[Rfam]
This 124-nucleotide RNA from Lacinutrix neustonica belongs to the Rfam family "Bacteroidete tryptophan peptide leader RNA".
A search with the family's covariance model found it, with a score of 58 bits.
Gene Ontology terms of the family: regulation of gene expression and S-adenosylmethionine metabolic process.

RNA sequence: CUUUGAACUUUAUAUCAAAAAUGAACAAUAUUUUAAAUCAUACUUGGUGGUGGAAUUCUCGAAAAACAAUUCGUGAAUAAACCCCUACAUAUAUUUAAAAUUAAAAUAUAGAAAAAGGCUUGUC
Numbered sequence: 001c002u003u004u005g006a007a008c009u010u011u012a013u014a015u016c017a018a019a020a021a022u023g024a025a026c027a028a029u030a031u032u033u034u035a036a037a038u039c040a041u042a043c044u045u046g047g048u049g050g051u052g053g054a055a056u057u058c059u060c061g062a063a064a065a066a067c068a069a070u071u072c073g074u075g076a077a078u079a080a081a082c083c084c085c086u087a088c089a090u091a092u093a094u095u096u097a098a099a100a101u102u103a104a105a106a107u108a109u110a111g112a113a114a115a116a117g118g119c120u121u122g123u124c
Base pairs, nucleotide, nucleotide: 036096037095040092041091042090045087046086047085049083050082051081055078056077058075060073063071064070

Record summary: The family's consensus secondary structure is taken from published work. The organism belongs to Lacinutrix, within Bacteria.